[Rfam]
Rfam assigns this 249-nucleotide sequence from Owenia fusiformis to the family "RNase MRP". The family's RNA type in Rfam is ribozyme. The literature on the family includes a 2005 paper in Biochem Biophys Res Commun by Walker and Avis, "Secondary structure probing of the human RNase MRP RNA reveals the potential for MRP RNA subsets". The base pairs follow the family's consensus structure, which is taken from published work. Rfam 15.1 lists 3,510 matches to the family in 2,315 species. The organism belongs to Owenia, within Eukaryota.
RNA sequence: GAGAGCCAUGUACACUUGCUUCGAAGCUACUCAAGAACACCAGUUGUUCCAUGCUUUGGGGAAAGUCCUCGGACCUAGGCCAGAAAGUGGUGGGGAUGAGAAUCCCUCCUCUGUGUCCGUUGUUCAAUGAAUUAGCCUAAGACAUUGCAGAAUGGAGGCUUGAGCAGGAUGUGGUGAUUGUCGUAUCAAAGUUAUGCAAGUGGUGUGGCAUUGCUACACAAACUCGACGGGGCUUACUCAUAUGAAUCU
Numbered sequence: 001g002a003g004a005g006c007c008a009u010g011u012a013c014a015c016u017u018g019c020u021u022c023g024a025a026g027c028u029a030c031u032c033a034a035g036a037a038c039a040c041c042a043g044u045u046g047u048u049c050c051a052u053g054c055u056u057u058g059g060g061g062a063a064a065g066u067c068c069u070c071g072g073a074c075c076u077a078g079g080c081c082a083g084a085a086a087g088u089g090g091u092g093g094g095g096a097u098g099a100g101a102a103u104c105c106c107u108c109c110u111c112u113g114u115g116u117c118c119g120u121u122g123u124u125c126a127a128u129g130a131a132u133u134a135g136c137c138u139a140a141g142a143c144a145u146u147g148c149a150g151a152a153u154g155g156a157g158g159c160u161u162g163a164g165c166a167g168g169a170u171g172u173g174g175u176g177a178u179u180g181u182c183g184u185a186u187c188a189a190a191g192u193u194a195u196g197c198a199a200g201u202g203g204u205g206u207g208g209c210a211u212u213g214c215u216a217c218a219c220a221a222a223c224u225c226g227a228c229g230g231g232g233c234u235u236a237c238u239c240a241u242a243u244g245a246a247u248c249u
Stems, first nucleotide, its partner, number of pairs: 002249003007244005014201006021059007035049005063235003067232004079091004092107006109176001111174001113172006122165004134160004144153003203219006